[Rfam]
Notes
Rfam assigns this 98-nucleotide RNA from Manihot esculenta to the family "Small nucleolar RNA Z43". Taxonomically the source falls in Manihot (Eukaryota, Embryophyta, Pentapetalae, Euphorbiaceae). For this family Rfam cites "The high diversity of snoRNAs in plants: identification and comparative study of 120 snoRNA genes from Oryza sativa" (Chen et al., Nucleic Acids Res, 2003). Gene Ontology terms of the family: nucleolus and RNA processing. A search with the family's covariance model found it, with a score of 90 bits.

RNA sequence: GGACGGUGACGAUUUCAGCAUGAAAGGUCUCGUUCGUCGUAAUUGGCCAACAGGCCUUGACGACCAUCCUGCUAUAUCACCACCCAUAUUCCGAGUCC
Numbered sequence: 001g002g003a004c005g006g007u008g009a010c011g012a013u014u015u016c017a018g019c020a021u022g023a024a025a026g027g028u029c030u031c032g033u034u035c036g037u038c039g040u041a042a043u044u045g046g047c048c049a050a051c052a053g054g055c056c057u058u059g060a061c062g063a064c065c066a067u068c069c070u071g072c073u074a075u076a077u078c079a080c081c082a083c084c085c086a087u088a089u090u091c092c093g094a095g096u097c098c
Stems, first nucleotide, its partner, number of pairs: 001098004049058002